[Rfam]
RNA: Eukaryotic large subunit ribosomal RNA, nucleotides 3399 to 3889
Nucleotides: 491
Stems, first nucleotide, its partner, number of pairs: 029183008039170004044074001046072006075128005083122003090115004094109006130165003137158005191387011391489004396412002400408001416481002419478001421475003425468002432462003437458001440455005
Number, partner (000 for none) and nucleotide at each position: 001000g002000a003000a004000u005000u006000u007000a008000c009000u010000a011000u012000u013000a014000u015000u016000u017000u018000c019000u020000u021000a022000u023000a024000c025000a026000u027000a028000u029183a030182g031181u032180a033179u034178u035177g036176u037000g038000a039170c040169a041168g042167u043000a044074a045000u046072c047071c048070a049069a050068c051067u052000u053000g054000g055000u056000a057000c058000g059000a060000g061000a062000g063000g064000a065000u066000u067051a068050g069049u070048u071047g072046g073000u074044u075128c076127a077126g078125a079124c080000a081000a082000u083122u084121g085120g086000u087000a088000c089000a090115g091114c092113a093112a094109u095108u096107g097106g098105u099104u100000g101000a102000c103000a104099a105098a106097c107096c108095a109094g110000u111000g112093u113092u114091g115090c116000g117000a118000a119000g120085c121084u122083a123000a124079g125078u126077c127076u128075g129000u130165u131164g132163g133000a134000u135000a136000a137158u138157g139156g140155c141154u142000g143000a144000a145000c146000g147000c148000c149000u150000c151000u152000u153000a154141a155140g156139c157138c158137a159000g160000a161000a162000a163132c164131c165130a166000u167042g168041c169040u170039g171000a172000u173000u174000a175000a176036a177035c178034a179033a180032u181031a182030c183029u184000a185000u186000c187000u188000c189000g190000u191387u192386c193385u194384u195383u196382u197381u198380u199379g200378u201377u202000a203000u204000c205000c206000u207000u208000u209000u210000a211000c212000u213000g214000c215000u216000g217000a218000u219000g220000u221000a222000a223000a224000a225000g226000a227000g228000a229000a230000a231000u232000u233000a234000u235000a236000c237000g238000u239000g240000c241000u242000u243000c244000c245000u246000g247000u248000a249000c250000g251000g252000a253000u254000g255000c256000a257000u258000u259000c260000a261000u262000a263000a264000u265000c266000c267000u268000a269000u270000c271000a272000c273000c274000u275000u276000u277000u278000u279000c280000g281000u282000g283000a284000g285000c286000u287000g288000c289000u290000g291000u292000u293000c294000g295000u296000g297000a298000g299000c300000u301000g302000u303000g304000a305000g306000c307000u308000g309000g310000u311000a312000a313000u314000g315000c316000a317000a318000a319000u320000u321000a322000u323000u324000a325000g326000u327000u328000u329000g330000c331000u332000g333000u334000u335000u336000c337000u338000g339000g340000a341000c342000u343000a344000u345000u346000u347000g348000a349000g350000c351000u352000g353000u354000g355000a356000g357000c358000u359000a360000g361000g362000c363000a364000a365000u366000a367000g368000u369000u370000c371000u372000u373000u374000a375000a376000c377201a378200a379199c380198a381197a382196a383195a384194a385193a386192g387191a388000a389000u390000u391489g392488c393487a394486c395000a396412a397411a398000u399000u400408g401000u402000a403000g404000a405000c406000g407000a408400c409000u410000u411397u412396u413000u414000u415000g416481c417480c418000u419478c420000g421475g422474g423473g424000u425468g426467c427000u428000g429000u430000a431000a432462a433461c434460a435000u436000g437458a438000a439000a440455g441454u442453a443452a444451a445000c446000u447000u448000u449000g450000u451444u452443u453442u454441a455440c456000g457000a458437u459000c460434u461433g462432u463000u464000g465000a466000g467426g468425c469000u470000u471000a472000u473423c474422c475421u476000c477000a478419g479000u480417g481416g482000u483000a484000a485000a486394g487393u488392g489391u490000u491000u